[Rfam]
RNA sequence: CGGGGAUGUCUCCUUGCCGCUAUCCAUGGAGGCACUCGGCCAUGCUGUGGGUUGGUAAUCAACCUUAGACGCGAGUCGUCGGUGGUGUGGUGUGAGGAUGGGUUAGAUGCCCA
Numbered sequence: 001c002g003g004g005g006a007u008g009u010c011u012c013c014u015u016g017c018c019g020c021u022a023u024c025c026a027u028g029g030a031g032g033c034a035c036u037c038g039g040c041c042a043u044g045c046u047g048u049g050g051g052u053u054g055g056u057a058a059u060c061a062a063c064c065u066u067a068g069a070c071g072c073g074a075g076u077c078g079u080c081g082g083u084g085g086u087g088u089g090g091u092g093u094g095a096g097g098a099u100g101g102g103u104u105a106g107a108u109g110c111c112c113a
Stems, first nucleotide, its partner, number of pairs: 001019003007034007035096004039091008049065007068080004099113005
RNA: epsC RNA